[Rfam]
A member of the RNA family "RNase MRP" from Drosophila persimilis, 348 nucleotides long. A search with the family's covariance model found it, with a score of 107 bits. The literature on the family includes a 1993 paper in FASEB J by Schmitt et al., "Secondary structure of RNase MRP RNA as predicted by phylogenetic comparison". RNase MRP is an enzymatically active ribonucleoprotein with two distinct roles in eukaryotes. In mitochondria it plays a direct role in the initiation of mitochondrial DNA replication. In the nucleus it is involved in precursor rRNA processing, where it cleaves the internal transcribed spacer 1 between 18S and 5.8S rRNAs.
RNA sequence: UGAGUUUUUCAUGCUUGUCUCUCGGGGUCACAAACGAGUUCCUGGUAACUCUCUCGAUCAAUGCCCUGGGUAAAGUCCCCGGGCCUAGGAUAGAAAGUAUCAAGGUGUAAAAUCGCAUGUGUUCUUGCCUGCCUCUCUAGAGAAAGGCGCACAUUCGCCUAUAUUCCGCGGAACUGCGCCUUGCAUAUGAUGAAGAGGGAUCCGCAAGGAUCUCGAAUUGUUACGUUCGGUAGUCUGCGGAAAUCUGCCAGAGUCUCACCUAAGAUAUGGACGAGCUGGUUGGCAUUCACCAUGGGUUUACGCUGGGGUUUGUCGCCUACACAGAAUGGGGCUUACAUUGAGAAAUUC
Numbered sequence: 001u002g003a004g005u006u007u008u009u010c011a012u013g014c015u016u017g018u019c020u021c022u023c024g025g026g027g028u029c030a031c032a033a034a035c036g037a038g039u040u041c042c043u044g045g046u047a048a049c050u051c052u053c054u055c056g057a058u059c060a061a062u063g064c065c066c067u068g069g070g071u072a073a074a075g076u077c078c079c080c081g082g083g084c085c086u087a088g089g090a091u092a093g094a095a096a097g098u099a100u101c102a103a104g105g106u107g108u109a110a111a112a113u114c115g116c117a118u119g120u121g122u123u124c125u126u127g128c129c130u131g132c133c134u135c136u137c138u139a140g141a142g143a144a145a146g147g148c149g150c151a152c153a154u155u156c157g158c159c160u161a162u163a164u165u166c167c168g169c170g171g172a173a174c175u176g177c178g179c180c181u182u183g184c185a186u187a188u189g190a191u192g193a194a195g196a197g198g199g200a201u202c203c204g205c206a207a208g209g210a211u212c213u214c215g216a217a218u219u220g221u222u223a224c225g226u227u228c229g230g231u232a233g234u235c236u237g238c239g240g241a242a243a244u245c246u247g248c249c250a251g252a253g254u255c256u257c258a259c260c261u262a263a264g265a266u267a268u269g270g271a272c273g274a275g276c277u278g279g280u281u282g283g284c285a286u287u288c289a290c291c292a293u294g295g296g297u298u299u300a301c302g303c304u305g306g307g308g309u310u311u312g313u314c315g316c317c318u319a320c321a322c323a324g325a326a327u328g329g330g331g332c333u334u335a336c337a338u339u340g341a342g343a344a345a346u347u348c
Base pairs, nucleotide, nucleotide: 002348003347004346005345006344007343008342009341010340011339014269016267017266018265019264022069023068024067025066026065027064028063036051037050038049039048040047073334074333075332077331078330079329080328089101090100091099092098145160146159147158148157149156164232169229170228171227176226177225178224188220189219190218191217198213199212200211201210202209203208271318273316275314